[Rfam]
This 64-nucleotide RNA sequence from Halovenus aranensis belongs to the Rfam family "eL15-Euryarchaeota ribosomal protein leader". For this family Rfam cites "Discovery of 20 novel ribosomal leader candidates in bacteria and archaea" (Eckert and Weinberg, BMC Microbiol, 2020). Lineage of the source: Archaea > Methanobacteriati > Halobacteriales > Haloarculaceae > Halovenus.
RNA sequence: CCUGUUGUACACAGGUCGGGAUGUGAACCGCACGAGACGCCUCGUCGACGGUUUGAACCACGCA
Dot-bracket structure: (((((.....)))))..((.....(((((....................)))))...)).....

By type it is a cis-regulatory leader.